[Rfam]
RNA sequence: AACCUGUGACGACAUGAUUCUGCCAAAUGAAUCUAAUGAUUAUACCCCAACCGUUCCAUAUUUCUGAGGUU
Number, nucleotide and partner (000 for none) at each position: 001a071002a070003c069004c068005u000006g000007u000008g000009a000010c000011g000012a000013c000014a000015u000016g000017a000018u000019u000020c000021u000022g000023c000024c000025a000026a000027a000028u000029g000030a000031a000032u000033c000034u000035a000036a000037u000038g000039a000040u000041u000042a000043u000044a000045c000046c000047c000048c000049a000050a000051c000052c000053g000054u000055u000056c000057c000058a000059u000060a000061u000062u000063u000064c000065u000066g000067a000068g004069g003070u002071u001
Small nucleolar RNA SNORD47: a 71-nucleotide RNA. Rfam links the family to the GO terms nucleolus and RNA processing. The family's RNA type in Rfam is C/D-box small nucleolar RNA. The literature on the family includes a 2002 paper in Mol Cell Biol by Galardi et al., "Purified box C/D snoRNPs are able to reproduce site-specific 2'-O-methylation of target RNA in vitro".